[Rfam]
RNA sequence: GUGUGUUUAUGUUUUGCAACCUCAUGUCUGAAUUUGUUGUAGAGGACGGUGAAGAUUGGUAUUUGCGCUGCCGACCAUCCUGCUAUAUCACCACCCGUAUUCUGAGUAC
Numbered sequence: 001g002u003g004u005g006u007u008u009a010u011g012u013u014u015u016g017c018a019a020c021c022u023c024a025u026g027u028c029u030g031a032a033u034u035u036g037u038u039g040u041a042g043a044g045g046a047c048g049g050u051g052a053a054g055a056u057u058g059g060u061a062u063u064u065g066c067g068c069u070g071c072c073g074a075c076c077a078u079c080c081u082g083c084u085a086u087a088u089c090a091c092c093a094c095c096c097g098u099a100u101u102c103u104g105a106g107u108a109c
Stems, first nucleotide, its partner, number of pairs: 001109004053069002055064001
Rfam assigns this 109-nucleotide sequence from Triticum aestivum to the family "Small nucleolar RNA Z43". A reference for the family is Chen et al. (2003), "The high diversity of snoRNAs in plants: identification and comparative study of 120 snoRNA genes from Oryza sativa", Nucleic Acids Res. Lineage of the source: Eukaryota > Euphyllophyta > Spermatophyta > Magnoliopsida > Triticum. Gene Ontology terms of the family: RNA processing and nucleolus.